[Rfam]
RNA sequence: UGCAGCUUUUUUAUGAUUAAGAAGCAACUGUUUCUUGUACAAGUUGUGUAUUAAUAU
Numbered sequence: 001u002g003c004a005g006c007u008u009u010u011u012u013a014u015g016a017u018u019a020a021g022a023a024g025c026a027a028c029u030g031u032u033u034c035u036u037g038u039a040c041a042a043g044u045u046g047u048g049u050a051u052u053a054a055u056a057u
Stems, first nucleotide, its partner, number of pairs: 018037008